Rfam assigns this 71-nucleotide RNA from Eptatretus burgeri to the family "mir-124 microRNA precursor family". A reference for the family is Lai et al. (2003), "Computational identification of Drosophila microRNA genes", Genome Biol. Rfam 15.1 lists 2,215 matches to the family in 905 species. Lineage of the source: Eukaryota > Deuterostomia > Craniata > Eptatretinae > Eptatretus. It scores 80 bits against the family's covariance model. The base pairs follow the family's consensus structure, which was predicted with PFOLD. Rfam links the family to the GO terms RISC complex and miRNA-mediated post-transcriptional gene silencing.
RNA sequence: CGCUCUUCGUGUUCACAGCGGACCUUGAUUUAAUGUACUACAAUUAAGGCACGCGGUGAAUGCCAAAAGCG
Number, nucleotide and partner (000 for none) at each position: 001c000002g000003c069004u068005c000006u066007u000008c000009g063010u062011g061012u060013u059014c058015a057016c056017a000018g054019c053020g052021g000022a000023c049024c048025u047026u046027g045028a044029u043030u042031u000032a000033a000034u000035g000036u000037a000038c000039u000040a000041c000042a030043a029044u028045u027046a026047a025048g024049g023050c000051a000052c020053g019054c018055g000056g016057u015058g014059a013060a012061u011062g010063c009064c000065a000066a006067a000068a004069g003070c000071g000